[Rfam]
RNA sequence: CGAUUGGAUAGCAUCUUUGGAUGUGAAACUCGCCUGUAAUCCCGGCAUCAUCGCGCAAGCGGUGUGGCGACUGCUCUUGCUGCUGCGGCAGCAAUCUU
Numbered sequence: 001c002g003a004u005u006g007g008a009u010a011g012c013a014u015c016u017u018u019g020g021a022u023g024u025g026a027a028a029c030u031c032g033c034c035u036g037u038a039a040u041c042c043c044g045g046c047a048u049c050a051u052c053g054c055g056c057a058a059g060c061g062g063u064g065u066g067g068c069g070a071c072u073g074c075u076c077u078u079g080c081u082g083c084u085g086c087g088g089c090a091g092c093a094a095u096c097u098u
Stems, first nucleotide, its partner, number of pairs: 011024005030070005049064006081093005
Shown here is a 98-nucleotide RNA sequence, a member of the family "DUF3577 RNA". It is one of the family's seed sequences.